[Rfam]
RNA: Small nucleolar RNA U54
Organism: Anisodus acutangulus
RNA sequence: AGCUCAAUGAUUGCAUGCCUUGUAGGCAAUAUACGCUAUACCGAUUGAAAUCAUGAGCAGAUGAAUUUUUUGAAGUAGGAGAGCU
Number, nucleotide and partner (000 for none) at each position: 001a085002g084003c083004u082005c081006a000007a000008u000009g000010a000011u000012u000013g000014c000015a000016u000017g000018c000019c000020u000021u000022g000023u000024a000025g000026g000027c000028a000029a000030u000031a000032u000033a000034c000035g000036c000037u000038a000039u000040a000041c000042c000043g000044a000045u000046u000047g000048a000049a000050a000051u000052c000053a000054u000055g000056a000057g000058c000059a000060g000061a000062u000063g000064a000065a000066u000067u000068u000069u000070u000071u000072g000073a000074a000075g000076u000077a000078g000079g000080a000081g005082a004083g003084c002085u001